FMN riboswitch aptamer (RFN element): a 145-nucleotide RNA from Bacillus subtilis. Its family is annotated with FMN binding in the Gene Ontology. Pairs were carried over by alignment from the consensus structure, which is taken from published work.

RNA sequence: UGUAUCCUUCGGGGCAGGGUGGAAAUCCCGACCGGCGGUAGUAAAGCACAUUUGCUUUAGAGCCCGUGACCCGUGUGCAUAAGCACGCGGUGGAUUCAGUUUAAGCUGAAGCCGACAGUGAAAGUCUGGAUGGGAGAAGGAUGAU
Numbered sequence: 001u002g003u004a005u006c007c008u009u010c011g012g013g014g015c016a017g018g019g020u021g022g023a024a025a026u027c028c029c030g031a032c033c034g035g036c037g038g039u040a041g042u043a044a045a046g047c048a049c050a051u052u053u054g055c056u057u058u059a060g061a062g063c064c065c066g067u068g069a070c071c072c073g074u075g076u077g078c079a080u081a082a083g084c085a086c087g088c089g090g091u092g093g094a095u096u097c098a099g100u101u102u103a104a105g106c107u108g109a110a111g112c113c114g115a116c117a118g119u120g121a122a123a124g125u126c127u128g129g130a131u132g133g134g135a136g137a138a139g140g141a142u143g144a145u
Stems, first nucleotide, its partner, number of pairs: 003143008017029003031125002033114002035067004062112002071090002095110005116128003